The family of this 63-nucleotide RNA from Spiroplasma turonicum is "Coronavirus 3' UTR pseudoknot". Clan: Coronavirus 3' UTR. Coronaviruses are plus-strand RNA viruses with ~30kb genomes. The 3' UTR region of coronavirus genomes contains a conserved ~55nt pseudoknot structure which has been shown to be necessary for viral genome replication. The mechanism of cis-regulation is unclear, but this element is postulated to function in the plus-strand. The seed alignment was expanded in 2020 by Eric Nawrocki. Lineage of the source: Bacteria > Bacillati > Mollicutes > Spiroplasmataceae > Spiroplasma. Gene Ontology term of the family: viral genome replication. The family's RNA type in Rfam is cis-regulatory element.
RNA sequence: UUAUUCUGGUACUGAAUCGAAAUCAAAUGUUAUUGAUAGUGCUAGAAGUUUAAUUAUAGAUUA
Numbered sequence: 001u002u003a004u005u006c007u008g009g010u011a012c013u014g015a016a017u018c019g020a021a022a023u024c025a026a027a028u029g030u031u032a033u034u035g036a037u038a039g040u041g042c043u044a045g046a047a048g049u050u051u052a053a054u055u056a057u058a059g060a061u062u063a
Stems, first nucleotide, its partner, number of pairs: 007044006028058002032054005